[Rfam]
Overview:
A member of the RNA family "Enterococcus sRNA 68 (Lacto-3 RNA)" from Liquorilactobacillus oeni, 126 nucleotides long. By type it is a small RNA. NCBI's taxonomy places the organism under Bacteria, Bacilli, Lactobacillales, Liquorilactobacillus, Liquorilactobacillus oeni. Pairs were carried over by alignment from the consensus structure, which is taken from published work.
RNA sequence: UGCGAUGAGUCGAGAAUAGUCAGGCGAUUUUAAAAUCGUUCCGCUGCGGCGGCUAGUGACUUUUUCAAGCGGAGUACAAAUGCUAGCGGAUUUCUAGCGUACUUAUAGAUUGCUAUUGUGGAAUGG
Numbered sequence: 001u002g003c004g005a006u007g008a009g010u011c012g013a014g015a016a017u018a019g020u021c022a023g024g025c026g027a028u029u030u031u032a033a034a035a036u037c038g039u040u041c042c043g044c045u046g047c048g049g050c051g052g053c054u055a056g057u058g059a060c061u062u063u064u065u066c067a068a069g070c071g072g073a074g075u076a077c078a079a080a081u082g083c084u085a086g087c088g089g090a091u092u093u094c095u096a097g098c099g100u101a102c103u104u105a106u107a108g109a110u111u112g113c114u115a116u117u118g119u120g121g122a123a124u125g126g
Base pairs, nucleotide, nucleotide: 018061019060020059021058022057023040024039025038026037027036028035041052042051043050044049073103074102075101076100077099082098083097084096085095086094113126114125115124116123117122